[Rfam]
RNA sequence: UAUAUUUGCAUGCUCAAUGAGAAAAUCAUUGAAAUACAUAAAAAUCAUUUUAAUAAUAUUGGCAUG
Dot-bracket structure: .............((((((.......))))))..................................
The record is a 66-nucleotide RNA sequence, which matches "S15-Flavobacteria ribosomal protein leader" in Rfam. Rfam's curators put it in the seed alignment. Pairs were carried over by alignment from the consensus structure, which is taken from published work. It is annotated as a cis-regulatory leader.